[Rfam]
RNA sequence: GGCACCGUAGCGGGAGAGCCUGGUGCCUUACCAGCACCAGCGCCGAAGGAGCAACCACCCCGGAAACUCUCAGGCAACCAGGACCGCUACGGUAGG
Numbered sequence: 001g002g003c004a005c006c007g008u009a010g011c012g013g014g015a016g017a018g019c020c021u022g023g024u025g026c027c028u029u030a031c032c033a034g035c036a037c038c039a040g041c042g043c044c045g046a047a048g049g050a051g052c053a054a055c056c057a058c059c060c061c062g063g064a065a066a067c068u069c070u071c072a073g074g075c076a077a078c079c080a081g082g083a084c085c086g087c088u089a090c091g092g093u094a095g096g
Stems, first nucleotide, its partner, number of pairs: 006091008020040007042075003045071002049069003055063002
Dot-bracket structure: .....((((((((......(((((((.......))))))).(((((..(((...((.....))...))))).)))........)))))))).....
Rfam assigns this 96-nucleotide sequence from Rhodoferax sp. TH121 to the family "Glycine riboswitch aptamer". NCBI's taxonomy places the organism under Bacteria, Pseudomonadati, Pseudomonadota, Betaproteobacteria, Rhodoferax. The family is grouped with related families in Rfam's "Glycine riboswitch clan".